[Rfam]
RNA sequence: CGCACCUCCUUGGAAGAGAGUCAUCCGUAUCGUGGAUGACCGCCGAAGGCGCAACGUCCGCCCGGAAUCGCUCAGGCUGUAGGACCGGGGAGGUGUA
Numbered sequence: 001c002g003c004a005c006c007u008c009c010u011u012g013g014a015a016g017a018g019a020g021u022c023a024u025c026c027g028u029a030u031c032g033u034g035g036a037u038g039a040c041c042g043c044c045g046a047a048g049g050c051g052c053a054a055c056g057u058c059c060g061c062c063c064g065g066a067a068u069c070g071c072u073c074a075g076g077c078u079g080u081a082g083g084a085c086c087g088g089g090g091a092g093g094u095g096u097a
Stems, first nucleotide, its partner, number of pairs: 006092008020040007042077003045073002049071003055064002

Shown here is a 97-nucleotide RNA from Thioalkalivibrio paradoxus, a member of the family "Glycine riboswitch aptamer".
About the family: This family represents the bacterial glycine riboswitch. Glycine riboswitches usually consist of two metabolite-binding aptamers domains with similar structures in tandem. The aptamers cooperatively bind glycine to regulate the expression of downstream genes. In Bacillus subtilis, this riboswitch is found upstream of the gcvT operon which controls glycine degradation.